[Rfam]
The family of this 110-nucleotide sequence is "drum RNA". Firmicutes, Bacteroidetes (1 example), Proteobacteria (2 examples), Spirochaetes (2 examples). Rfam classes the family as a small RNA. It is one of the family's seed sequences.

RNA sequence: CGCCUGUGAAGCAAGGAUUUUGUUGGGAAGUGCUUGCAGAGGCUCCAAUAGGGUUGUGUGGUCUCCAGGUUCCAACUUAGGCGAUAACGCUGAAAAUAAAAACACUCCUA
Number, nucleotide and partner (000 for none) at each position: 001c000002g043003c042004c041005u000006g000007u000008g000009a000010a000011g037012c036013a035014a034015g033016g000017a031018u030019u029020u028021u027022g000023u075024u074025g073026g072027g021028a020029a019030g018031u017032g000033c015034u014035u013036g012037c011038a000039g000040a000041g004042g003043c002044u000045c000046c000047a000048a000049u000050a000051g000052g000053g000054u000055u000056g000057u000058g105059u104060g103061g000062u000063c000064u000065c000066c000067a000068g000069g000070u000071u000072c026073c025074a024075a023076c000077u000078u000079a000080g091081g090082c089083g088084a000085u000086a000087a000088c083089g082090c081091u080092g000093a000094a000095a000096a000097u000098a000099a000100a000101a000102a000103c060104a059105c058106u000107c000108c000109u000110a000